[Rfam]
RNA sequence: AAAAAAGCAGGGGUUUGUUGUCUCUACGAACAAGUCUCCCGUAGACUUCAGGGAAAUGGUGUUAUUGGGUGAACCACUGUAGGCUUUGUCGAUGACAAAAGGUUCAGUAAAUAAUGGCACAUUG
Numbered sequence: 001a002a003a004a005a006a007g008c009a010g011g012g013g014u015u016u017g018u019u020g021u022c023u024c025u026a027c028g029a030a031c032a033a034g035u036c037u038c039c040c041g042u043a044g045a046c047u048u049c050a051g052g053g054a055a056a057u058g059g060u061g062u063u064a065u066u067g068g069g070u071g072a073a074c075c076a077c078u079g080u081a082g083g084c085u086u087u088g089u090c091g092a093u094g095a096c097a098a099a100a101g102g103u104u105c106a107g108u109a110a111a112u113a114a115u116g117g118c119a120c121a122u123u124g
Base pairs, nucleotide, nucleotide: 005048006047007046011037012036014034015033016032017031060113061112062111063110070106071105072104073103074102075101